[Rfam]
Nucleotides: 348
Base pairs, nucleotide, nucleotide: 001344002343003342004341005340006339007338008337009336010335012313013312014311015310016309017308018307020048021047022046023045024044025043026042053331054330055329057328058327059326060325061324062221063220064219065218070251071250075217076216077215078214079213081093082092083091084090095109096107097106098105099104110212111211115210116209117206118205119204131153132152133149134148135147136146137145138144139143161179162178164176165175166174181201182199185196186195187194188193225270226269227268228267234261235260236259237258238257239256243255244254245253246252277296278295279294280293281292282291283290284289
Number, partner (000 for none) and nucleotide at each position: 001344c002343g003342a004341g005340u006339a007338a008337a009336c010335c011000a012313g013312g014311c015310a016309g017308c018307c019000g020048c021047g022046u023045g024044g025043g026042c027000a028000u029000g030000c031000g032000c033000c034000g035000a036000a037000a038000g039000g040000c041000c042026g043025u044024u045023c046022a047021c048020g049000a050000g051000g052000a053331a054330a055329g056000u057328c058327c059326g060325g061324g062221c063220u064219c065218c066000a067000u068000a069000g070251g071250g072000c073000a074000a075217g076216g077215a078214u079213a080000a081093c082092g083091g084090g085000u086000a087000a088000c089000g090084c091083c092082c093081g094000c095109c096107g097106a098105a099104g100000g101000c102000g103000a104099c105098u106097u107096c108000a109095g110212g111211a112000a113000a114000a115210g116209u117206g118205c119204a120000a121000c122000a123000g124000a125000g126000a127000u128000a129000u130000a131153c132152c133149g134148c135147c136146g137145g138144g139143g140000u141000u142000u143139u144138c145137c146136c147135g148134g149133u150000a151000a152132g153131g154000g155000u156000g157000g158000a159000a160000a161179g162178g163000c164176g165175a166174g167000g168000u169000a170000a171000g172000a173000g174166c175165u176164c177000a178162c179161c180000g181201g182199c183000c184000g185196c186195c187194g188193g189000g190000g191000a192000a193188c194187c195186g196185g197000c198000c199182g200000g201181c202000c203000c204119u205118g206117u207000a208000a209116a210115c211111u212110c213079u214078a215077u216076c217075c218065g219064g220063a221062g222000c223000a224000a225270c226269a227268c228267c229000g230000c231000a232000g233000a234261g235260g236259g237258g238257a239256c240000a241000u242000u243255g244254g245253u246252c247000g248000g249000c250071c251070c252246g253245g254244c255243c256239g257238u258237c259236c260235c261234c262000g263000g264000g265000u266000a267228g268227g269226u270225g271000g272000c273000u274000u275000g276000a277296g278295c279294c280293c281292g282291g283290u284289g285000g286000c287000g288000a289284c290283g291282c292281c293280g294279g295278g296277c297000c298000u299000a300000g301000a302000c303000a304000g305000a306000u307018g308017g309016c310015u311014g312013u313012c314000a315000u316000u317000g318000a319000c320000a321000g322000a323000a324061c325060c326059c327058g328057g329055c330054u331053u332000a333000c334000a335010g336009g337008u338007u339006u340005g341004c342003u343002c344001g345000c346000a347000g348000a
A member of the RNA family "Bacterial RNase P class A" from Papillibacter cinnamivorans, 348 nucleotides long. It scores 277 bits against the family's covariance model. Rfam links the family to the GO terms tRNA processing, ribonuclease P activity and dimeric ribonuclease P complex. Pairs were carried over by alignment from the consensus structure, which is taken from published work. By type it is a ribozyme.